[Rfam]
RNA sequence: GGUUGACCGAUUUCUUUUGGUGUUCAGAGUCCAAUUCUGUUUCUAGCACCAUUUGAAAUCGGUUACAG
Numbered sequence: 001g002g003u004u005g006a007c008c009g010a011u012u013u014c015u016u017u018u019g020g021u022g023u024u025c026a027g028a029g030u031c032c033a034a035u036u037c038u039g040u041u042u043c044u045a046g047c048a049c050c051a052u053u054u055g056a057a058a059u060c061g062g063u064u065a066c067a068g
Stems, first nucleotide, its partner, number of pairs: 004065001005063001007062008018051005026044003

Shown here is a 68-nucleotide RNA sequence from Tetraodon nigroviridis, a member of the family "mir-29 microRNA precursor family".
Rfam's curators write: This family represents the microRNA (miRNA) precursors mir-29.
On this family, see Ambros, Cell 2001: "microRNAs: tiny regulators with great potential".
Lineage of the source: Eukaryota > Clupeocephala > Neoteleostei > Acanthomorphata > Tetraodon.
The base pairs follow the family's consensus structure, which was predicted with PFOLD.
Rfam 15.1 lists 3,328 matches to the family in 787 species.